[Rfam]
Record summary: A member of the RNA family "glmS glucosamine-6-phosphate activated ribozyme aptamer" from Listeria fleischmannii, 195 nucleotides long. This entry contains a glucosamine-6-phosphate activated ribozyme that is found in the mRNA for GlmS. GlmS is an enzyme that uses fructose-6-phosphate and glutamine to generate glucosamine-6-phosphate. It is annotated as a riboswitch.
Nucleotides: 195
Base pairs, nucleotide, nucleotide: 020075021074022073023072024071025070026069027068084115085114086113087112088111093104094103095102096101116133117132118131119130120129121128139185140184142182143181144180145179153170154169155168156167157166158165159164
Number, partner (000 for none) and nucleotide at each position: 001000a002000a003000u004000u005000a006000a007000a008000u009000a010000a011000a012000a013000g014000c015000g016000c017000c018000a019000g020075a021074a022073c023072u024071a025070a026069u027068u028000g029000a030000a031000u032000g033000g034000a035000a036000c037000g038000a039000a040000a041000a042000g043000c044000g045000a046000g047000u048000g049000a050000a051000a052000u053000u054000c055000u056000a057000g058000c059000u060000u061000u062000u063000u064000c065000u066000g067000a068027a069026a070025u071024u072023a073022g074021u075020u076000g077000a078000c079000g080000a081000g082000g083000a084115g085114g086113a087112g088111a089000u090000u091000a092000a093104u094103c095102g096101a097000a098000g099000u100000u101096u102095c103094g104093g105000c106000g107000g108000g109000a110000g111088u112087c113086u114085c115084c116133c117132g118131g119130c120129u121128g122000u123000g124000c125000a126000u127000g128121c129120a130119g131118u132117c133116g134000u135000u136000a137000u138000g139185c140184c141000u142182u143181a144180g145179c146000u147000a148000c149000a150000a151000a152000c153170c154169a155168u156167u157166u158165g159164g160000g161000u162000a163000a164159c165158c166157a167156g168155a169154u170153g171000a172000a173000c174000a175000g176000a177000g178000u179145g180144c181143u182142a183000u184140g185139g186000a187000u188000c189000a190000u191000g192000c193000g194000u195000g